A member of the RNA family "RAGATH-18 RNA", 66 nucleotides long. The family's RNA type in Rfam is small RNA.

[Rfam]
RNA sequence: UCUAUGGAGAGUACAAGAACUUGUGAGUAGUACCUUGGUACGAAAGCAUACUCGAUGAAAUAGGAA
Numbered sequence: 001u002c003u004a005u006g007g008a009g010a011g012u013a014c015a016a017g018a019a020c021u022u023g024u025g026a027g028u029a030g031u032a033c034c035u036u037g038g039u040a041c042g043a044a045a046g047c048a049u050a051c052u053c054g055a056u057g058a059a060a061u062a063g064g065a066a
Base pairs, nucleotide, nucleotide: 001064002063003062004061005060009053010052011051012050013049022048023047024046030041031040032039033038
Pairs were carried over by alignment from the consensus structure, which is taken from published work.